[Rfam]
RNA sequence: GGGCGCAUGGUGGAUGCCUUGGCAUCAGGAGCCGAUGAAGGACGUGGUAAUCUGCGAUAAGCCUCGGGGAGUUGAUAAACGGGCUGUGAUCCGAGGAUGUCCGAAUGGGGAAACCCCGCUGCCUGUGUGGGUAGUGACUUGUAUCUGAAUUCAUAGGGUGCAAGGGGGAACGCGGGGAAGUGAAACAUCUCAGUACCCGUAGGAAGAGAAAACAAGAGUGAUUCCGUGAGUAGUGGCGAGCGAAAGCGGAUGGGGCUAAACCGUUGGUGUGUGAUACCCGGCAGGGGUUGCAUCAGCGGGGUUGUGGGAUGCGUUGUUCCUCCGUCUGCCGGUGGGGGUGCGUGAGUGCGGGGUGGUAGUCGAAGCAUUGUUGAGUGGUGUGCCGUAGAGGGUGUGAGUCCCGUAGACGAAACUGCUGUCCGCCGCGUGUGGCGUUGUCCCGAGUAGCACGGGGCUCGUGGAAUCUCGUGUGAAUCUGCCAGGACCACCUGGUAAGCCUGAAUACUACCUGAUGACCGAUAGCGGACUAGUACCGUGAGGGAAAGGUGAAAAGUACCCCGGGAGGGGAGUGAAAGAGUACCUGAAACCAUGUGCUUACAA
Numbered sequence: 001g002g003g004c005g006c007a008u009g010g011u012g013g014a015u016g017c018c019u020u021g022g023c024a025u026c027a028g029g030a031g032c033c034g035a036u037g038a039a040g041g042a043c044g045u046g047g048u049a050a051u052c053u054g055c056g057a058u059a060a061g062c063c064u065c066g067g068g069g070a071g072u073u074g075a076u077a078a079a080c081g082g083g084c085u086g087u088g089a090u091c092c093g094a095g096g097a098u099g100u101c102c103g104a105a106u107g108g109g110g111a112a113a114c115c116c117c118g119c120u121g122c123c124u125g126u127g128u129g130g131g132u133a134g135u136g137a138c139u140u141g142u143a144u145c146u147g148a149a150u151u152c153a154u155a156g157g158g159u160g161c162a163a164g165g166g167g168g169a170a171c172g173c174g175g176g177g178a179a180g181u182g183a184a185a186c187a188u189c190u191c192a193g194u195a196c197c198c199g200u201a202g203g204a205a206g207a208g209a210a211a212a213c214a215a216g217a218g219u220g221a222u223u224c225c226g227u228g229a230g231u232a233g234u235g236g237c238g239a240g241c242g243a244a245a246g247c248g249g250a251u252g253g254g255g256c257u258a259a260a261c262c263g264u265u266g267g268u269g270u271g272u273g274a275u276a277c278c279c280g281g282c283a284g285g286g287g288u289u290g291c292a293u294c295a296g297c298g299g300g301g302u303u304g305u306g307g308g309a310u311g312c313g314u315u316g317u318u319c320c321u322c323c324g325u326c327u328g329c330c331g332g333u334g335g336g337g338g339u340g341c342g343u344g345a346g347u348g349c350g351g352g353g354u355g356g357u358a359g360u361c362g363a364a365g366c367a368u369u370g371u372u373g374a375g376u377g378g379u380g381u382g383c384c385g386u387a388g389a390g391g392g393u394g395u396g397a398g399u400c401c402c403g404u405a406g407a408c409g410a411a412a413c414u415g416c417u418g419u420c421c422g423c424c425g426c427g428u429g430u431g432g433c434g435u436u437g438u439c440c441c442g443a444g445u446a447g448c449a450c451g452g453g454g455c456u457c458g459u460g461g462a463a464u465c466u467c468g469u470g471u472g473a474a475u476c477u478g479c480c481a482g483g484a485c486c487a488c489c490u491g492g493u494a495a496g497c498c499u500g501a502a503u504a505c506u507a508c509c510u511g512a513u514g515a516c517c518g519a520u521a522g523c524g525g526a527c528u529a530g531u532a533c534c535g536u537g538a539g540g541g542a543a544a545g546g547u548g549a550a551a552a553g554u555a556c557c558c559c560g561g562g563a564g565g566g567g568a569g570u571g572a573a574a575g576a577g578u579a580c581c582u583g584a585a586a587c588c589a590u591g592u593g594c595u596u597a598c599a600a
Stems, first nucleotide, its partner, number of pairs: 001596010016581001017546002021517002023514007030506002032167002040102003043056003062096007071084003107116003117136007138164009171202001172200005182189002212219002222502001223250005233241002253499004261299011306441003311435005348423003352417006359408003365381005384388001390402003447471008478493005533540002556567004

Rfam assigns this 600-nucleotide part of an RNA from Kocuria coralli to the family "Bacterial large subunit ribosomal RNA".
The family has 102 seed sequences and 51,934 matches in Rfam 15.1.
A search with the family's covariance model found it, with a score of 2683 bits.
The organism belongs to Kocuria, within Bacteria.